[Rfam]
RNA sequence: GCGUCCUGCCUCGUGAUCGUCUUCUCACCCUUCACGGCGGCGGGCGGAAGGACGGAACGGCCUCGCGAGGACCUGACUCGCGGGGCCGCUCC
Numbered sequence: 001g002c003g004u005c006c007u008g009c010c011u012c013g014u015g016a017u018c019g020u021c022u023u024c025u026c027a028c029c030c031u032u033c034a035c036g037g038c039g040g041c042g043g044g045c046g047g048a049a050g051g052a053c054g055g056a057a058c059g060g061c062c063u064c065g066c067g068a069g070g071a072c073c074u075g076a077c078u079c080g081c082g083g084g085g086c087c088g089c090u091c092c
Base pairs, nucleotide, nucleotide: 002046003045005044006043007042008041009040010039013035014034015033016032019029054092055091056090058088059087060086061085062084063083064082065081066080067079068078069077

The family of this 92-nucleotide sequence from Streptomyces sp. yr375 is "sodF sRNA". Pairs were carried over by alignment from the consensus structure. For this family Rfam cites "Inverse regulation of Fe- and Ni-containing SOD genes by a Fur family regulator Nur through small RNA processed from 3'UTR of the sodF mRNA" (Kim et al., Nucleic Acids Res, 2014). NCBI's taxonomy places the organism under Bacteria, Bacillati, Actinomycetes, Kitasatosporales, Streptomyces. Rfam links the family to the GO terms regulation of mRNA stability, negative regulation of translation and mRNA binding. It scores 80 bits against the family's covariance model.